RNA sequence: UAACAUCAUCAAGAAUCCUUUAAUGGAUGCCAACCGAGCUUUAGCCACGGUGGCAAAAUAGAUGAGGUCGGAUCGACAAAAAACAUCCCCCCU
Numbered sequence: 001u002a003a004c005a006u007c008a009u010c011a012a013g014a015a016u017c018c019u020u021u022a023a024u025g026g027a028u029g030c031c032a033a034c035c036g037a038g039c040u041u042u043a044g045c046c047a048c049g050g051u052g053g054c055a056a057a058a059u060a061g062a063u064g065a066g067g068u069c070g071g072a073u074c075g076a077c078a079a080a081a082a083a084c085a086u087c088c089c090c091c092c093u
Stems, first nucleotide, its partner, number of pairs: 006065005015028004029054003034050003038045002067077004
Record summary
The family of this 93-nucleotide sequence from Flammeovirga pacifica is "SAM-I/IV (S-adenosyl methionine) riboswitch aptamer". Clan: SAM clan. A search with the family's covariance model found it, with a score of 61 bits. For this family Rfam cites "The aptamer core of SAM-IV riboswitches mimics the ligand-binding site of SAM-I riboswitches" (Weinberg et al., RNA, 2008). Taxonomically the source falls in Flammeovirga (Bacteria, Pseudomonadati, Cytophagales, Flammeovirgaceae). Pairs were carried over by alignment from the consensus structure, which is taken from published work. Gene Ontology terms of the family: S-adenosylmethionine metabolic process and regulation of gene expression.